RNA sequence: UACGCGUCAGCACCGCAGGCAGGAGCGGGGGACCCAGGUAAGUCGCCGGUCCGGAUCCCAUCCGGAACGGCUCGGGGUGAAGCCGGAGGAGCGCGGAAGCGUUCCCCACCGGCCGGGCAACUCACCACGCCCGAACCCGACAGCUCACCUCGCAGGCGUUCGGUGAGAAGGAAU
Numbered sequence: 001u002a003c004g005c006g007u008c009a010g011c012a013c014c015g016c017a018g019g020c021a022g023g024a025g026c027g028g029g030g031g032a033c034c035c036a037g038g039u040a041a042g043u044c045g046c047c048g049g050u051c052c053g054g055a056u057c058c059c060a061u062c063c064g065g066a067a068c069g070g071c072u073c074g075g076g077g078u079g080a081a082g083c084c085g086g087a088g089g090a091g092c093g094c095g096g097a098a099g100c101g102u103u104c105c106c107c108a109c110c111g112g113c114c115g116g117g118c119a120a121c122u123c124a125c126c127a128c129g130c131c132c133g134a135a136c137c138c139g140a141c142a143g144c145u146c147a148c149c150u151c152g153c154a155g156g157c158g159u160u161c162g163g164u165g166a167g168a169a170g171g172a173a174u
Stems, first nucleotide, its partner, number of pairs: 005158004013023002025153006035074001075138003083112004115132004
RNA: c-di-AMP riboswitch aptamer (ydaO/yuaA leader)